[Rfam]
RNA: Bacillaceae-1 RNA
RNA sequence: UGUAUUGGAAGUCAGUCUAGGUUCGCGACAUCGUGUCGCAACGACUGACUGACCCACAUCCUGUGGG
Numbered sequence: 001u002g003u004a005u006u007g008g009a010a011g012u013c014a015g016u017c018u019a020g021g022u023u024c025g026c027g028a029c030a031u032c033g034u035g036u037c038g039c040a041a042c043g044a045c046u047g048a049c050u051g052a053c054c055c056a057c058a059u060c061c062u063g064u065g066g067g
Base pairs, nucleotide, nucleotide: 011049012048013047014046015045016044017043025039026038027037028036029035053067054066055065056064057063